This 126-nucleotide RNA sequence from Camellia sinensis belongs to the Rfam family "MIR408 microRNA precursor family".
Taxonomically the source falls in Camellia sinensis (Eukaryota, Viridiplantae, Euphyllophyta, eudicotyledons).

RNA sequence: AAUGAUUGAAGAGGGGAGACGGGGAUGAGACAGAGCAUGAGAUGGGAUUUUAAUUAACACAUAAAAGUUGUGUUGUUAUUCUUCUCUUGCACUGCCUCUUCCCUGGCUCUCCUCUCUCUUUCUCUU
Numbered sequence: 001a002a003u004g005a006u007u008g009a010a011g012a013g014g015g016g017a018g019a020c021g022g023g024g025a026u027g028a029g030a031c032a033g034a035g036c037a038u039g040a041g042a043u044g045g046g047a048u049u050u051u052a053a054u055u056a057a058c059a060c061a062u063a064a065a066a067g068u069u070g071u072g073u074u075g076u077u078a079u080u081c082u083u084c085u086c087u088u089g090c091a092c093u094g095c096c097u098c099u100u101c102c103c104u105g106g107c108u109c110u111c112c113u114c115u116c117u118c119u120u121u122c123u124c125u126u
Base pairs, nucleotide, nucleotide: 016109017108018107020105021104022103023102024101025100028097029096031094032093033092035090036089037088039086041085045081046080
The family's consensus secondary structure was predicted with WAR. On this family, see Sunkar and Zhu, Plant Cell 2004: "Novel and stress-regulated microRNAs and other small RNAs from Arabidopsis".